A member of the RNA family "Small nucleolar RNA SNORD14" from Triticum urartu, 119 nucleotides long. About the family: U14 small nucleolar RNA (U14 snoRNA) is required for early cleavages of eukaryotic precursor rRNAs. In yeasts, this molecule possess a stem-loop region (known as the Y-domain) which is essential for function. A similar structure, but with a different consensus sequence, is found in plants, but is absent in vertebrates. The organism belongs to Triticum, within Eukaryota. By type it is a C/D-box small nucleolar RNA. The base pairs follow the family's consensus structure, which was predicted with PFOLD.
RNA sequence: AGACAAUUGAUAAAUUUAAGGCUUGUUUCUCAAAACAUUCGCAGAUGCCGCCUAAGAGCUUUCGCCUAGCCAAGCUUGAGAGCUACUGCUGCUGAUUCCUUCCUUGGAUGUCCAAGCCU
Number, nucleotide and partner (000 for none) at each position: 001a119002g118003a000004c116005a000006a000007u000008u000009g000010a000011u000012a000013a000014a000015u000016u000017u000018a000019a000020g000021g000022c000023u000024u000025g000026u000027u000028u000029c000030u000031c000032a000033a000034a000035a000036c000037a000038u000039u000040c000041g000042c000043a000044g000045a000046u000047g000048c000049c000050g000051c000052c000053u000054a000055a000056g000057a000058g083059c082060u081061u080062u079063c078064g000065c000066c000067u000068a000069g000070c000071c000072a000073a000074g000075c000076u000077u000078g063079a062080g061081a060082g059083c058084u000085a000086c000087u000088g000089c000090u000091g000092c000093u000094g000095a000096u000097u000098c000099c000100u000101u000102c000103c000104u000105u000106g000107g000108a000109u000110g000111u000112c000113c000114a000115a000116g004117c000118c002119u001